This 47-nucleotide RNA sequence belongs to the Rfam family "L31-Actinobacteria ribosomal protein leader". It is annotated as a cis-regulatory leader. The family's consensus secondary structure is taken from published work.

[Rfam]
RNA sequence: CAGGUUCCGGUUCACGUCCACGAACUCAUCAGGGCGACCCGGCGACC
Numbered sequence: 001c002a003g004g005u006u007c008c009g010g011u012u013c014a015c016g017u018c019c020a021c022g023a024a025c026u027c028a029u030c031a032g033g034g035c036g037a038c039c040c041g042g043c044g045a046c047c
Stems, first nucleotide, its partner, number of pairs: 003047003007042004015036005